RNA sequence: AAACAAUAAUUGCCGAAUUCCUUUACGGGAAGCGGGGGAACCAUACCGGGUGAAUUGGUCUCGCUUCAAAGUGACCAUAGGGAACCUUCAACCGAACCCUGAGCUAACCUCGCAGGCACUGGAAGGAGCAGGG
Number, nucleotide and partner (000 for none) at each position: 001a000002a000003a000004c000005a000006a000007u000008a000009a000010u000011u118012g117013c116014c115015g000016a000017a000018u031019u030020c029021c000022u000023u000024u000025a000026c000027g000028g000029g020030a019031a018032g113033c112034g111035g110036g109037g108038g000039a000040a000041c000042c000043a000044u000045a000046c000047c000048g099049g098050g097051u000052g000053a000054a000055u000056u077057g076058g075059u074060c000061u000062c000063g000064c000065u000066u000067c000068a000069a000070a000071g000072u000073g000074a059075c058076c057077a056078u000079a000080g093081g092082g000083a000084a000085c000086c000087u000088u000089c000090a000091a000092c081093c080094g000095a000096a000097c050098c049099c048100u000101g000102a000103g000104c000105u000106a000107a000108c037109c036110u035111c034112g033113c032114a000115g014116g013117c012118a011119c000120u000121g000122g000123a000124a000125g000126g000127a000128g000129c000130a000131g000132g000133g000
Notes:
Shown here is a 133-nucleotide RNA from Paenibacillus oceani, a member of the family "c-di-AMP riboswitch aptamer (ydaO/yuaA leader)". The base pairs follow the family's consensus structure. The organism belongs to Paenibacillus, within Bacteria.